[Rfam]
RNA sequence: UACCGGCAGUCCAACGCCGGCGCGGGCUACUGAAAAGGCUUGUCCUUCAUUGCCAGGUGUGCGGGCGGGAAUCUCCCAACCAAUCCACGGCAGCAGAGUUUGAUCCGAGCAUUCGGCUCGUUGCGCCUCCAUCGCGUGACGUCGCCGGAGUCGAGGA
Numbered sequence: 001u002a003c004c005g006g007c008a009g010u011c012c013a014a015c016g017c018c019g020g021c022g023c024g025g026g027c028u029a030c031u032g033a034a035a036a037g038g039c040u041u042g043u044c045c046u047u048c049a050u051u052g053c054c055a056g057g058u059g060u061g062c063g064g065g066c067g068g069g070a071a072u073c074u075c076c077c078a079a080c081c082a083a084u085c086c087a088c089g090g091c092a093g094c095a096g097a098g099u100u101u102g103a104u105c106c107g108a109g110c111a112u113u114c115g116g117c118u119c120g121u122u123g124c125g126c127c128u129c130c131a132u133c134g135c136g137u138g139a140c141g142u143c144g145c146c147g148g149a150g151u152c153g154a155g156g157a
Base pairs, nucleotide, nucleotide: 001022003020004019005018006017007016037054038053039052061137062136063135086096106120107119108118109117110116
RNA: speF leader